Shown here is a 92-nucleotide RNA from Hucho hucho, a member of the family "mir-146 microRNA precursor family".
[Rfam]
Nucleotides: 092
Stems, first nucleotide, its partner, number of pairs: 008083001011080003018073004023068003033059004
Number, partner (000 for none) and nucleotide at each position: 001000a002000u003000g004000a005000g006000c007000g008083u009000u010000u011080g012079g013078c014000c015000a016000u017000g018073a019072g020071a021070a022000c023068u024067g025066a026000a027000u028000u029000c030000c031000a032000u033059a034058g035057a036056u037000g038000g039000u040000a041000g042000u043000c044000g045000c046000u047000c048000a049000c050000a051000u052000a053000g054000a055000c056036a057035u058034c059033u060000a061000u062000g063000g064000a065000c066025u067024c068023a069000a070021u071020u072019c073018u074000u075000c076000u077000u078013g079012c080011c081000u082000c083008g084000c085000a086000g087000c088000u089000a090000c091000a092000a
Taxonomically the source falls in Hucho (Eukaryota, Chordata, Protacanthopterygii, Salmonidae). A search with the family's covariance model found it, with a score of 54 bits. Rfam links the family to the GO terms RISC complex and miRNA-mediated post-transcriptional gene silencing.